[Rfam]
RNA sequence: CGAGCCGGAACGGGAGAGCCCCCGCCCACCGAGGCAGGGCACCGAAGGAGCAAACUCCCCGGAAUCUCUCAGGUAAAGCGACCGUUCCAGGCCA
Numbered sequence: 001c002g003a004g005c006c007g008g009a010a011c012g013g014g015a016g017a018g019c020c021c022c023c024g025c026c027c028a029c030c031g032a033g034g035c036a037g038g039g040c041a042c043c044g045a046a047g048g049a050g051c052a053a054a055c056u057c058c059c060c061g062g063a064a065u066c067u068c069u070c071a072g073g074u075a076a077a078g079c080g081a082c083c084g085u086u087c088c089a090g091g092c093c094a
Stems, first nucleotide, its partner, number of pairs: 007088007020039003041074003044070002048068003055061001

Shown here is a 94-nucleotide RNA sequence from Actinokineospora iranica, a member of the family "Glycine riboswitch aptamer". Lineage of the source: Bacteria > Actinomycetota > Pseudonocardiales > Pseudonocardiaceae > Actinokineospora. It scores 56 bits against the family's covariance model. For this family Rfam cites "A glycine-dependent riboswitch that uses cooperative binding to control gene expression" (Mandal et al., Science, 2004).